The record is a 73-nucleotide RNA from Drosophila ananassae, which matches "Small nucleolar RNA CD11" in Rfam. Lineage of the source: Eukaryota > Panorpida > Cyclorrhapha > Drosophila > ananassae species complex. Gene Ontology terms of the family: nucleolus and RNA processing. The base pairs follow the family's consensus structure, which was predicted with ILM. The sequence is in the family's curated seed alignment. It is annotated as a C/D-box small nucleolar RNA.
RNA sequence: UGGCUACUAUGAUGAACGAAUGAGCAGAAGAGUUCUUGAAGACUAUAUUCAUCACCCAAGACUGACACAGCCA
Numbered sequence: 001u002g003g004c005u006a007c008u009a010u011g012a013u014g015a016a017c018g019a020a021u022g023a024g025c026a027g028a029a030g031a032g033u034u035c036u037u038g039a040a041g042a043c044u045a046u047a048u049u050c051a052u053c054a055c056c057c058a059a060g061a062c063u064g065a066c067a068c069a070g071c072c073a
Base pairs, nucleotide, nucleotide: 001069002068027035028034029033